Source information:
Rfam assigns this 72-nucleotide RNA sequence from Helicobacter macacae to the family "tRNA". The match comes from Rfam's covariance-model search (71 bits).
[Rfam]
RNA sequence: GGUUCUGUAGCUCAGUGGUAGAGCACUACCUUGACAUGGUAGGGGUCGUUGGUUCAAAUCCAAUCAGAGCCA
Numbered sequence: 001g002g003u004u005c006u007g008u009a010g011c012u013c014a015g016u017g018g019u020a021g022a023g024c025a026c027u028a029c030c031u032u033g034a035c036a037u038g039g040u041a042g043g044g045g046u047c048g049u050u051g052g053u054u055c056a057a058a059u060c061c062a063a064u065c066a067g068a069g070c071c072a
Base pairs, nucleotide, nucleotide: 001071002070003069004068005067006066007065010024011023012022013021026042027041028040029039030038048064049063050062051061052060
The family's consensus secondary structure is taken from published work. Rfam classes the family as a transfer RNA. Transfer RNA (tRNA) molecules are approximately 80 nucleotides in length.